[Rfam]
RNA sequence: UGCAGAGUAAGUUCAUAUGCGUAAAGUGCUCCCAGGAUAGAGAGUAGCCAGGGAGACGAAAAGAGAAAAUCUUGCGGUAUAUGAAUUGCAUCUCGCUGCA
Numbered sequence: 001u002g003c004a005g006a007g008u009a010a011g012u013u014c015a016u017a018u019g020c021g022u023a024a025a026g027u028g029c030u031c032c033c034a035g036g037a038u039a040g041a042g043a044g045u046a047g048c049c050a051g052g053g054a055g056a057c058g059a060a061a062a063g064a065g066a067a068a069a070u071c072u073u074g075c076g077g078u079a080u081a082u083g084a085a086u087u088g089c090a091u092c093u094c095g096c097u098g099c100a
Stems, first nucleotide, its partner, number of pairs: 001100005010087010020076003026057002029055005035049002040093001042091001044089001061073004
A member of the RNA family "THF (Tetrahydrofolate) riboswitch aptamer" from Blautia sp. CAG:37, 100 nucleotides long.
On this family, see Ames et al., Chem Biol 2010: "A eubacterial riboswitch class that senses the coenzyme tetrahydrofolate".
The family's consensus secondary structure is taken from published work.
Rfam's curators write: Tetrahydrofolate (THF) riboswitch was first reported for Ames et al. as an RNA motif in 5' untranslated (5'-UTR)regions of folate transport and biosynthesis genes in Firmicutes genomes.
The organism belongs to Blautia, within Bacteria.